[Rfam]
RNA sequence: AUGGUCUGACUGGCUCGGACCUCUACCAGUUUUCACCCGGUGAUAAUCGUCGCAUUGGAGUAUCACCGCGGAGAAAAUUGGCAAAGGUCCGACCCAGACCA
Numbered sequence: 001a002u003g004g005u006c007u008g009a010c011u012g013g014c015u016c017g018g019a020c021c022u023c024u025a026c027c028a029g030u031u032u033u034c035a036c037c038c039g040g041u042g043a044u045a046a047u048c049g050u051c052g053c054a055u056u057g058g059a060g061u062a063u064c065a066c067c068g069c070g071g072a073g074a075a076a077a078u079u080g081g082c083a084a085a086g087g088u089c090c091g092a093c094c095c096a097g098a099c100c101a
Stems, first nucleotide, its partner, number of pairs: 016091007024083001026081009036071002038068001040066006